[Rfam]
Rfam assigns this 48-nucleotide RNA sequence from Gammaproteobacteria bacterium LSUCC0112 to the family "Guanidine-II riboswitch aptamer (mini-ykkC)".
The base pairs follow the family's consensus structure, which is taken from published work.
Gene Ontology term of the family: regulation of gene expression.

RNA sequence: CGCGCAGGACGACCUGCUGGCGUUUUCAGUCAUCCUGGGACGACCCUG
Numbered sequence: 001c002g003c004g005c006a007g008g009a010c011g012a013c014c015u016g017c018u019g020g021c022g023u024u025u026u027c028a029g030u031c032a033u034c035c036u037g038g039g040a041c042g043a044c045c046c047u048g
Stems, first nucleotide, its partner, number of pairs: 001020001004017005035048001037046003